A member of the RNA family "small nucleolar RNA snoR114" from Vitis vinifera, 92 nucleotides long.
NCBI's taxonomy places the organism under Eukaryota, Streptophytina, Tracheophyta, Mesangiospermae, Vitis.
RNA sequence: GAGCAGUGAGGAUUGGUUUGCGCUAAACCGUGAUGGCUGGGUCUCAUCACCGACGUCUGAUGUAUCGGACGACAAUACGCGCAUCUGAGCUC
Number, nucleotide and partner (000 for none) at each position: 001g092002a091003g090004c089005a000006g000007u000008g000009a000010g000011g000012a000013u000014u000015g000016g000017u000018u000019u000020g000021c000022g000023c000024u000025a000026a000027a000028c000029c000030g000031u000032g000033a000034u000035g000036g000037c000038u000039g000040g000041g000042u000043c000044u000045c000046a000047u000048c000049a000050c000051c000052g000053a000054c000055g000056u000057c000058u000059g000060a000061u000062g000063u000064a000065u000066c000067g000068g000069a000070c000071g000072a000073c000074a000075a000076u000077a000078c000079g000080c000081g000082c000083a000084u000085c000086u000087g000088a000089g004090c003091u002092c001
A reference for the family is Chen and Wu (2009), "Mining small RNA sequencing data: a new approach to identify small nucleolar RNAs in Arabidopsis", Nucleic Acids Res. Its family is annotated with RNA processing and nucleolus in the Gene Ontology.